[Rfam]
RNA sequence: UUAGUUCAUGUAAACAUCCUACACUCAGCUAUAACAACUGGAACGGCUGGGAGGUGGAUGUUUACUUCAACUGA
Numbered sequence: 001u002u003a004g005u006u007c008a009u010g011u012a013a014a015c016a017u018c019c020u021a022c023a024c025u026c027a028g029c030u031a032u033a034a035c036a037a038c039u040g041g042a043a044c045g046g047c048u049g050g051g052a053g054g055u056g057g058a059u060g061u062u063u064a065c066u067u068c069a070a071c072u073g074a
Stems, first nucleotide, its partner, number of pairs: 002073005008067001010065010022053001024051007
RNA: mir-30 microRNA precursor family
Organism: Alligator mississippiensis